Shown here is a 143-nucleotide RNA sequence from Paenibacillus crassostreae, a member of the family "c-di-AMP riboswitch aptamer (ydaO/yuaA leader)". Its family is annotated with cyclic-di-AMP binding and regulation of gene expression in the Gene Ontology. For this family Rfam cites "New RNA motifs suggest an expanded scope for riboswitches in bacterial genetic control" (Barrick et al., Proc Natl Acad Sci U S A, 2004).
[Rfam]
RNA sequence: UUUAAUAAUGCGCCGAAUAUUCAUUUGAAUUACGGAGGAACCAAAGAAUUAAUGGGGUGAAUUUUGAUAUUCAUUAUCGAAAAGGGCGACCUGUGCAUGCCCGAAUCCGUCAGCUAACUUCGUAGGCGAUAUGCAACCAGGAA
Numbered sequence: 001u002u003u004a005a006u007a008a009u010g011c012g013c014c015g016a017a018u019a020u021u022c023a024u025u026u027g028a029a030u031u032a033c034g035g036a037g038g039a040a041c042c043a044a045a046g047a048a049u050u051a052a053u054g055g056g057g058u059g060a061a062u063u064u065u066g067a068u069a070u071u072c073a074u075u076a077u078c079g080a081a082a083a084g085g086g087c088g089a090c091c092u093g094u095g096c097a098u099g100c101c102c103g104a105a106u107c108c109g110u111c112a113g114c115u116a117a118c119u120u121c122g123u124a125g126g127c128g129a130u131a132u133g134c135a136a137c138c139a140g141g142a143a
Stems, first nucleotide, its partner, number of pairs: 011128004019030002032123006042054002055108003063081004084102004